[Rfam]
RNA sequence: CUAACUGGUACAUAAAAUUACACAUUCUGUUCUAAUCAGUGUGAAAACUGGUUUUCGCCUUUUGGCGGACUUUUUCACUCGCAUUUUUGGGCAAUCGUCUGCGGCUAGCUUGCUAGCGGCGGACGAGCGGUCUCCGGGGCGUUCACCUUUCCCCCGCGAGGCCAACUACAC
Numbered sequence: 001c002u003a004a005c006u007g008g009u010a011c012a013u014a015a016a017a018u019u020a021c022a023c024a025u026u027c028u029g030u031u032c033u034a035a036u037c038a039g040u041g042u043g044a045a046a047a048c049u050g051g052u053u054u055u056c057g058c059c060u061u062u063u064g065g066c067g068g069a070c071u072u073u074u075u076c077a078c079u080c081g082c083a084u085u086u087u088u089g090g091g092c093a094a095u096c097g098u099c100u101g102c103g104g105c106u107a108g109c110u111u112g113c114u115a116g117c118g119g120c121g122g123a124c125g126a127g128c129g130g131u132c133u134c135c136g137g138g139g140c141g142u143u144c145a146c147c148u149u150u151c152c153c154c155c156g157c158g159a160g161g162c163c164a165a166c167u168a169c170a171c
Stems, first nucleotide, its partner, number of pairs: 001008002034053006055068005096125007105116004129163005135156005
Rfam assigns this 171-nucleotide RNA sequence from Phytophthora infestans to the family "U2 spliceosomal RNA". The match comes from Rfam's covariance-model search (58 bits). The family is grouped with related families in Rfam's "U2 clan". By type it is a spliceosomal small nuclear RNA.